RNA sequence: CCCGCCGAAGUGGGUCUCAGCCCAGCCUCACUGGAGGUAGGCCAUGGGGUAGAGUUACUGAUUGGAAGUGCAGUAGCCGAAAGGCUACGACUUCCAGUCAAACUCCGAACCUGUGGCCGCCGAAGAAGGUGGGAGUGGGGUUUCCCAGGGGUAAGCCUGGGAGCCGAGAGGGGAACAACUCAGACCGAGGUUAAGGCCCCAAAGUGCUGGCUAAGUGCCAUCUAAAGGGCGUCCUCAGCCUAAGACAGCGGGGAGGUUGGCCCAGCAGCAGCCAUCCUCUAAGGAGUGCGUAACAGCUCACCCGCCGAGGCUGAGGGCCCCGAAGAUUGGUCGGGGCUAAGCCAGCCGCCGAUACCUCGGGGCACCUCUGCAUUGCAGAGGUGAUCCGGUAGGCGGGCGUCGGGGUGGGGCAGAAGUCGGGCCGUGAGGUCCGAUGGACCCGCUCCGAGUGCGGAU
Numbered sequence: 001c002c003c004g005c006c007g008a009a010g011u012g013g014g015u016c017u018c019a020g021c022c023c024a025g026c027c028u029c030a031c032u033g034g035a036g037g038u039a040g041g042c043c044a045u046g047g048g049g050u051a052g053a054g055u056u057a058c059u060g061a062u063u064g065g066a067a068g069u070g071c072a073g074u075a076g077c078c079g080a081a082a083g084g085c086u087a088c089g090a091c092u093u094c095c096a097g098u099c100a101a102a103c104u105c106c107g108a109a110c111c112u113g114u115g116g117c118c119g120c121c122g123a124a125g126a127a128g129g130u131g132g133g134a135g136u137g138g139g140g141u142u143u144c145c146c147a148g149g150g151g152u153a154a155g156c157c158u159g160g161g162a163g164c165c166g167a168g169a170g171g172g173g174a175a176c177a178a179c180u181c182a183g184a185c186c187g188a189g190g191u192u193a194a195g196g197c198c199c200c201a202a203a204g205u206g207c208u209g210g211c212u213a214a215g216u217g218c219c220a221u222c223u224a225a226a227g228g229g230c231g232u233c234c235u236c237a238g239c240c241u242a243a244g245a246c247a248g249c250g251g252g253g254a255g256g257u258u259g260g261c262c263c264a265g266c267a268g269c270a271g272c273c274a275u276c277c278u279c280u281a282a283g284g285a286g287u288g289c290g291u292a293a294c295a296g297c298u299c300a301c302c303c304g305c306c307g308a309g310g311c312u313g314a315g316g317g318c319c320c321c322g323a324a325g326a327u328u329g330g331u332c333g334g335g336g337c338u339a340a341g342c343c344a345g346c347c348g349c350c351g352a353u354a355c356c357u358c359g360g361g362g363c364a365c366c367u368c369u370g371c372a373u374u375g376c377a378g379a380g381g382u383g384a385u386c387c388g389g390u391a392g393g394c395g396g397g398c399g400u401c402g403g404g405g406u407g408g409g410g411c412a413g414a415a416g417u418c419g420g421g422c423c424g425u426g427a428g429g430u431c432c433g434a435u436g437g438a439c440c441c442g443c444u445c446c447g448a449g450u451g452c453g454g455a456u
Base pairs, nucleotide, nucleotide: 001397002396003395004394005393006392011024012023013022014021015020026135027133028132029131030130031129032128036121037120038119040118041117042116043115044114045113046112047111052106053104054103060099061098062097063096064095065094066093067092068091069090073088074087075086076085077084078083139165140164141163142162143161144160145159148158149157170181171180172179185360186359187358188357189356190355191354195350196349197348204347206346207345208344209343210342211341227321228320229319231318232317233316234315235314236313237312238311239310240309248305249304250303251302252301254278255277256276259273260272261271279283284299288297289296361387362386363383364382365381366380367379368378369377398451400448401447402446403445404444405443406442407441408440409439416435417434418433419432420431421430422429423428
RNA: Archaeal large subunit ribosomal RNA, nucleotides 955 to 1410
Organism: Fervidicoccus fontis